The family of this 110-nucleotide RNA from Pseudonocardia benzenivorans is "TPP riboswitch aptamer (THI element)".
The source organism's lineage runs through Bacteria, Bacillati, Pseudonocardiales, Pseudonocardiaceae and Pseudonocardia benzenivorans.
The match comes from Rfam's covariance-model search (60 bits).
Pairs were carried over by alignment from the consensus structure, which is taken from published work.
Vitamin B(1) in its active form thiamin pyrophosphate (TPP) is an essential coenzyme that is synthesised by coupling of pyrimidine and thiazole moieties in bacteria. The previously detected thiamin-regulatory element, thi box was extended, resulting in a new, highly conserved RNA secondary structure, the THI element, which is widely distributed in eubacteria and also occurs in some archaea.

RNA sequence: AAGGUGACGCACGGGAGCCCGGCACAGCGGGCUGAGAGGGGACGCGAACCGUCCCGACCGUCGAACCUGAUCCGGGUCAUGCCGGCGCAGGGAGCGGGGAGAUGAGCACG
Numbered sequence: 001a002a003g004g005u006g007a008c009g010c011a012c013g014g015g016a017g018c019c020c021g022g023c024a025c026a027g028c029g030g031g032c033u034g035a036g037a038g039g040g041g042a043c044g045c046g047a048a049c050c051g052u053c054c055c056g057a058c059c060g061u062c063g064a065a066c067c068u069g070a071u072c073c074g075g076g077u078c079a080u081g082c083c084g085g086c087g088c089a090g091g092g093a094g095c096g097g098g099g100a101g102a103u104g105a106g107c108a109c110g
Stems, first nucleotide, its partner, number of pairs: 008096003011061004017032005039055005066091004072085004